[Rfam]
RNA: FGF-1 internal ribosome entry site (IRES)
RNA sequence: GGCCCCUACGGGAAUAAGGGCAUCGCCUCCUUUGGUGAAGGCCACUCCCUUCAGAUGGAGGAUGGGAACUCCUUUCUUCCUGCAGAGGCCUGCCUGCUGCAGUCCUGCUAGGACAGUGUGGACACCGUAGGCUGCCACAGCUGCUAGCACCCCAGAAAGAAAGCACCCCAGAGC
Numbered sequence: 001g002g003c004c005c006c007u008a009c010g011g012g013a014a015u016a017a018g019g020g021c022a023u024c025g026c027c028u029c030c031u032u033u034g035g036u037g038a039a040g041g042c043c044a045c046u047c048c049c050u051u052c053a054g055a056u057g058g059a060g061g062a063u064g065g066g067a068a069c070u071c072c073u074u075u076c077u078u079c080c081u082g083c084a085g086a087g088g089c090c091u092g093c094c095u096g097c098u099g100c101a102g103u104c105c106u107g108c109u110a111g112g113a114c115a116g117u118g119u120g121g122a123c124a125c126c127g128u129a130g131g132c133u134g135c136c137a138c139a140g141c142u143g144c145u146a147g148c149a150c151c152c153c154a155g156a157a158a159g160a161a162a163g164c165a166c167c168c169c170a171g172a173g174c
Stems, first nucleotide, its partner, number of pairs: 002174002005171001010169003015160001017050004026041003030037001051156002058079001060076003064073003088148002090143001092141002098137001099135004104131001105120001